[Rfam]
This 74-nucleotide RNA from Scaptodrosophila lebanonensis belongs to the Rfam family "Small nucleolar RNA CD11". Taxonomically the source falls in Scaptodrosophila (Eukaryota, Eumetazoa, Ecdysozoa, Endopterygota). The match comes from Rfam's covariance-model search (86 bits). Rfam classes the family as a C/D-box small nucleolar RNA. A reference for the family is Huang et al. (2005), "Genome-wide analyses of two families of snoRNA genes from Drosophila melanogaster, demonstrating the extensive utilization of introns for coding of snoRNAs", RNA.

RNA sequence: UGUUUUCCAUGAUGAUUGAAUUGGCGGAAGAGUUCUUGAAGACUAUAUUCAUCACCCAAGACUGAAAACAAAAA
Numbered sequence: 001u002g003u004u005u006u007c008c009a010u011g012a013u014g015a016u017u018g019a020a021u022u023g024g025c026g027g028a029a030g031a032g033u034u035c036u037u038g039a040a041g042a043c044u045a046u047a048u049u050c051a052u053c054a055c056c057c058a059a060g061a062c063u064g065a066a067a068a069c070a071a072a073a074a
Base pairs, nucleotide, nucleotide: 001070002069003068027035028034029033